[Rfam]
Background:
This 115-nucleotide RNA sequence from Avibacterium volantium belongs to the Rfam family "Aggregatibacter sRNA 54". Rfam's curators write: Validated by RT-PCR, expression up-regulated during growth.
Nucleotides: 115
Base pairs, nucleotide, nucleotide: 001014002013003012005010026081028079030076031075033073034072042067043066045064046063050061051060052059082112083111084110085109086108087107088106089105090104091103
Number, partner (000 for none) and nucleotide at each position: 001014g002013c003012g004000u005010a006000a007000c008000a009000u010005u011000c012003c013002g014001c015000a016000c017000g018000a019000u020000u021000u022000a023000g024000c025000a026081a027000c028079a029000a030076g031075a032000g033073g034072a035000c036000a037000c038000a039000c040000a041000c042067u043066u044000u045064g046063g047000a048000c049000a050061g051060u052059c053000a054000u055000a056000g057000u058000c059052g060051a061050u062000a063046c064045c065000c066043a067042a068000u069000u070000u071000a072034u073033c074000g075031u076030u077000g078000a079028u080000c081026u082112a083111a084110a085109u086108c087107u088106c089105g090104u091103c092000c093000u094000c095000c096000a097000c098000u099000u100000a101000u102000c103091g104090g105089c106088g107087a108086g109085a110084u111083u112082u113000c114000g115000c
The organism belongs to Avibacterium, within Bacteria. A reference for the family is Oogai et al. (2017), "Small RNA repertoires and their intraspecies variation in Aggregatibacter actinomycetemcomitans", DNA Res.